[Rfam]
Bacterial small subunit ribosomal RNA: a 592-nucleotide part of an RNA from Cloacimonas acidaminivorans. Clan: SSU clan. The sequence is in the family's curated seed alignment.
RNA sequence: UGACGGGGGCCCGCACAAGCGGUGGAGCAUGUGGUUUAAUUCGACGCAACGCGAAGAACCUUACCCGGUCUUGACAUCUGCAGAAUUCUUCAGAGAUGGAGGAGUGCCGGCUUGCCGGAGCUGCAAGACAGGUGCUGCAUGGCUGUCGUCAGCUCGUGUCGUGAGAUGUUGGGUUAAGUCCCGCAACGAGCGCAACCCCUGCUUUCAGUUGCCAUCAUUAAGUUGGGGACUCUGGAAGGACCGCUGCGGUAACAACGCAGAGGAAGAUGGGGACGAGGUCAAGUCAUCAUGGUCCUUAUGACCGGGGCUACACACGUGCUACAAUGGUAGUUACAGAGGGGAGCGAAGCAGUGAUGUGGAGCGAAUCUCAGAAAAGCUACCCAAGUUCGGAUUGAGGUCUGCAACUCGACCUCAUGAAGCCGGAAUCGCUAGUAAUCGCGCAACAUCAUGGUGCGGUGAAUACGUUCCCGGGCCUUGUACACACCGCCCGUCAAGUCAGCCGAGUGGAGUGCACCCGAAGGAGGUGAGCUAACCCGUGAGGGAAGCAGCUUUCGAAGGUGUGCUUUGCGAGGAGGACUAAGUCGUAACAAGG
Number, nucleotide and partner (000 for none) at each position: 001u481002g480003a478004c477005g476006g000007g475008g474009g473010c472011c471012c470013g469014c000015a465016c464017a000018a000019g429020c428021g427022g426023u425024g322025g000026a320027g319028c318029a317030u316031g315032u314033g313034g311035u310036u000037u000038a000039a000040u055041u054042c053043g052044a000045c000046g000047c000048a000049a000050c000051g000052c043053g042054a041055a040056g000057a000058a000059c000060c000061u000062u000063a000064c306065c305066c304067g303068g302069u301070c300071u000072u000073g000074a000075c000076a000077u128078c127079u125080g124081c123082a122083g121084a000085a000086u103087u102088c101089u100090u099091c098092a097093g000094a000095g000096a000097u092098g091099g090100a089101g088102g087103a086104g000105u120106g000107c118108c117109g116110g115111c000112u000113u000114g000115c110116c109117g108118g107119a000120g105121c083122u082123g081124c080125a079126a000127g078128a077129c000130a000131g295132g294133u000134g293135c292136u291137g290138c000139a000140u289141g288142g284143c283144u282145g280146u000147c278148g000149u000150c000151a000152g191153c190154u189155c188156g187157u186158g167159u166160c165161g000162u000163g000164a000165g160166a159167u158168g000169u000170u183171g182172g181173g180174u000175u000176a000177a000178g000179u000180c173181c172182c171183g170184c000185a000186a157187c156188g155189a154190g153191c152192g000193c000194a000195a000196c000197c272198c271199c270200u269201g000202c238203u237204u236205u235206c234207a233208g232209u000210u000211g000212c227213c226214a000215u000216c225217a224218u000219u000220a000221a000222g000223u000224u217225g216226g213227g212228g000229a000230c000231u000232c208233u207234g206235g205236a204237a203238g202239g000240a000241c263242c262243g000244c260245u259246g258247c257248g256249g000250u000251a000252a000253c000254a000255a000256c248257g247258c246259a245260g244261a000262g242263g241264a000265a000266g000267a000268u000269g200270g199271g198272g197273a000274c000275g000276a000277g000278g147279u000280c145281a000282a144283g143284u142285c000286a000287u000288c141289a140290u137291g136292g135293u134294c132295c131296u000297u000298a000299u000300g070301a069302c068303c067304g066305g065306g064307g000308c000309u000310a035311c034312a000313c033314a032315c031316g030317u029318g028319c027320u026321a000322c024323a000324a000325u000326g381327g380328u379329a378330g377331u376332u375333a000334c000335a000336g000337a000338g369339g368340g367341g000342a000343g362344c361345g000346a000347a000348g357349c356350a355351g000352u000353g000354a000355u350356g349357u348358g000359g000360a000361g344362c343363g000364a000365a000366u000367c340368u339369c338370a000371g000372a000373a000374a000375a332376g331377c330378u329379a328380c327381c326382c000383a000384a000385g000386u000387u000388c419389g000390g000391a000392u000393u414394g413395a412396g411397g410398u409399c408400u000401g000402c000403a000404a000405c000406u000407c000408g399409a398410c397411c396412u395413c394414a393415u000416g000417a000418a000419g388420c000421c000422g000423g000424a000425a023426u022427c021428g020429c019430u000431a000432g000433u000434a000435a457436u456437c455438g454439c453440g452441c451442a000443a000444c000445a000446u000447c000448a000449u000450g000451g441452u440453g439454c438455g437456g436457u435458g000459a000460a000461u000462a000463c000464g016465u015466u000467c000468c000469c013470g012471g011472g010473c009474c008475u007476u005477g004478u003479a000480c002481a001482c000483a000484c591485c000486g588487c000488c000489c584490g583491u000492c000493a000494a578495g577496u576497c575498a000499g000500c572501c571502g000503a000504g568505u567506g566507g565508a564509g563510u562511g561512c560513a559514c558515c557516c000517g000518a000519a000520g553521g552522a551523g550524g549525u548526g000527a000528g546529c545530u544531a000532a000533c542534c541535c000536g000537u000538g000539a000540g000541g534542g533543a000544a530545g529546c528547a000548g525549c524550u523551u522552u521553c520554g000555a000556a000557g515558g514559u513560g512561u511562g510563c509564u508565u507566u506567g505568c504569g000570a000571g501572g500573a000574g000575g497576a496577c495578u494579a000580a000581g000582u000583c490584g489585u000586a000587a000588c486589a000590a000591g484592g000